[Rfam]
RNA sequence: CUGAAGAAUCUGUAAAGCUCAGGAGGGAUAGCGCCAUGAUUUUUCACAUCAUCGUGUUCUUUGGCGCUGUCUAUCCUGAGUUUCAUGGCUUCUUCUU
Numbered sequence: 001c002u003g004a005a006g007a008a009u010c011u012g013u014a015a016a017g018c019u020c021a022g023g024a025g026g027g028a029u030a031g032c033g034c035c036a037u038g039a040u041u042u043u044u045c046a047c048a049u050c051a052u053c054g055u056g057u058u059c060u061u062u063g064g065c066g067c068u069g070u071c072u073a074u075c076c077u078g079a080g081u082u083u084c085a086u087g088g089c090u091u092c093u094u095c096u097u
Base pairs, nucleotide, nucleotide: 010088016082017081018080019079020078021077022076023075024074026072027071028070029069030068031067032066033065034064035063
RNA: MIR390 microRNA precursor family